The family of this 93-nucleotide RNA from Hamadaea sp. is "ZMP/ZTP riboswitch aptamer (pfl RNA motif)". Pairs were carried over by alignment from the consensus structure, which is taken from published work. The source organism's lineage runs through Bacteria, Bacillati, Actinomycetes, Micromonosporales and Hamadaea.
RNA sequence: UCGACAGGUCGCGACUGGCGCGGAACUUCGGGUGGAGAACCACCGGGGAGCGAUCCGAUCGGCCACAACGCACCGUGCGCCUGGGUGCGGGCC
Numbered sequence: 001u002c003g004a005c006a007g008g009u010c011g012c013g014a015c016u017g018g019c020g021c022g023g024a025a026c027u028u029c030g031g032g033u034g035g036a037g038a039a040c041c042a043c044c045g046g047g048g049a050g051c052g053a054u055c056c057g058a059u060c061g062g063c064c065a066c067a068a069c070g071c072a073c074c075g076u077g078c079g080c081c082u083g084g085g086u087g088c089g090g091g092c093c
Stems, first nucleotide, its partner, number of pairs: 003059001005057001007055006015047002017081005032043004070088005